[Rfam]
RNA: L31-Actinobacteria ribosomal protein leader
Organism: Pseudonocardia endophytica
RNA sequence: ACGGCUCCGGUUCACCCUCGCCGCUCUGAGAAGAGCAGGGACCCGGCGCC
Numbered sequence: 001a002c003g004g005c006u007c008c009g010g011u012u013c014a015c016c017c018u019c020g021c022c023g024c025u026c027u028g029a030g031a032a033g034a035g036c037a038g039g040g041a042c043c044c045g046g047c048g049c050c
Stems, first nucleotide, its partner, number of pairs: 003050003007046004015040004021033001